[Rfam]
RNA sequence: CAGCUUGCUGAAGCUCCGCAGCGGCGCCCAGGUUCUAAUAAAAGGACCCGACACCGUGACCAAUUCCGGAGCUCAA
Numbered sequence: 001c002a003g004c005u006u007g008c009u010g011a012a013g014c015u016c017c018g019c020a021g022c023g024g025c026g027c028c029c030a031g032g033u034u035c036u037a038a039u040a041a042a043a044g045g046a047c048c049c050g051a052c053a054c055c056g057u058g059a060c061c062a063a064u065u066c067c068g069g070a071g072c073u074c075a076a
Base pairs, nucleotide, nucleotide: 012073013072014071015070016069017068018067022056023055024054029050031048032047033045
RNA: ybhL leader
Organism: Rhizobium deserti